[Rfam]
RNA sequence: UGCCUUGUUUUUAGUGAAUUUUACCCAUUUUCAUGGGUGAAAUGAGUGUCGCAUGGCUACAGAAACUCAGGUUUGCUUUCAUCACUACGUGACCGUUGUAGUGGUGACAAUGAGGCCUGGAACAUUC
Numbered sequence: 001u002g003c004c005u006u007g008u009u010u011u012u013a014g015u016g017a018a019u020u021u022u023a024c025c026c027a028u029u030u031u032c033a034u035g036g037g038u039g040a041a042a043u044g045a046g047u048g049u050c051g052c053a054u055g056g057c058u059a060c061a062g063a064a065a066c067u068c069a070g071g072u073u074u075g076c077u078u079u080c081a082u083c084a085c086u087a088c089g090u091g092a093c094c095g096u097u098g099u100a101g102u103g104g105u106g107a108c109a110a111u112g113a114g115g116c117c118u119g120g121a122a123c124a125u126u127c
Base pairs, nucleotide, nucleotide: 002057003056004055006053007052008051021040022039023038024037025036026035027034067120068119069118070117071116080106081105082104083103084102085101